Rfam assigns this 137-nucleotide RNA sequence from Maylandia zebra to the family "Small nucleolar RNA SNORA15". ACA15 is a member of the H/ACA class of snoRNA that guide the sites of modification of uridines to pseudouridines. The family has 22 seed sequences and 974 matches in Rfam 15.1. Gene Ontology terms of the family: RNA processing and nucleolus.

RNA sequence: GCAUGGGCGAAUUCUGGUCCAGCUGCUCUGUGCUGGAUACAGUCAGACACCAUGCAACAGCCACGUCUCAUUUCCACUAAAUUAGUGGAUGAGUGCCUUCCUCAAGCUCAUCCAGCUGCGUGGGAAUGAGUACAAAC
Numbered sequence: 001g002c003a004u005g006g007g008c009g010a011a012u013u014c015u016g017g018u019c020c021a022g023c024u025g026c027u028c029u030g031u032g033c034u035g036g037a038u039a040c041a042g043u044c045a046g047a048c049a050c051c052a053u054g055c056a057a058c059a060g061c062c063a064c065g066u067c068u069c070a071u072u073u074c075c076a077c078u079a080a081a082u083u084a085g086u087g088g089a090u091g092a093g094u095g096c097c098u099u100c101c102u103c104a105a106g107c108u109c110a111u112c113c114a115g116c117u118g119c120g121u122g123g124g125a126a127u128g129a130g131u132a133c134a135a136a137c
Stems, first nucleotide, its partner, number of pairs: 001055006014042003067130003071126007086114009